[Rfam]
RNA sequence: GGCUGUGAUAUUGUCCUGUCACAGCAGUACUGGUUCGAGAUACUGCUGCCUCGGGACAUGACCAUAGCC
Number, nucleotide and partner (000 for none) at each position: 001g000002g000003c067004u066005g065006u064007g000008a000009u000010a000011u000012u058013g057014u056015c055016c054017u053018g052019u000020c000021a000022c048023a047024g046025c045026a044027g043028u042029a041030c000031u000032g000033g000034u000035u000036c000037g000038a000039g000040a000041u029042a028043c027044u026045g025046c024047u023048g022049c000050c000051u000052c018053g017054g016055g015056a014057c013058a012059u000060g000061a000062c000063c000064a006065u005066a004067g003068c000069c000

Rfam assigns this 69-nucleotide RNA sequence from Photinus pyralis to the family "mir-1000 microRNA precursor family".
Gene Ontology terms of the family: miRNA-mediated post-transcriptional gene silencing, RISC complex and negative regulation of glutamate secretion, neurotransmission.
The family has 13 seed sequences and 152 matches in Rfam 15.1.
A search with the family's covariance model found it, with a score of 73 bits.